[Rfam]
Notes:
The record is a 77-nucleotide RNA sequence from Cucurbita maxima, which matches "mir-166 microRNA precursor family" in Rfam. A reference for the family is Reinhart et al. (2002), "MicroRNAs in plants", Genes Dev. NCBI's taxonomy places the organism under Eukaryota, Spermatophyta, eudicotyledons, Cucurbitales, Cucurbita. About the family: This family represents the plant microRNA (miRNA) precursor mir-166. Rfam 15.1 lists 2,599 matches to the family in 229 species.

RNA sequence: UUUGAGGGGAACGUUGUCUGGCUCGAGGCGGCUUAGAAACAAUAAGUAUCGUCGGACCAGGCUUCAUUCCCCCCACA
Numbered sequence: 001u002u003u004g005a006g007g008g009g010a011a012c013g014u015u016g017u018c019u020g021g022c023u024c025g026a027g028g029c030g031g032c033u034u035a036g037a038a039a040c041a042a043u044a045a046g047u048a049u050c051g052u053c054g055g056a057c058c059a060g061g062c063u064u065c066a067u068u069c070c071c072c073c074c075a076c077a
Base pairs, nucleotide, nucleotide: 001077003075004074006072007071008070009069010068011067013065016062017061018060019059020058021057024054025053026052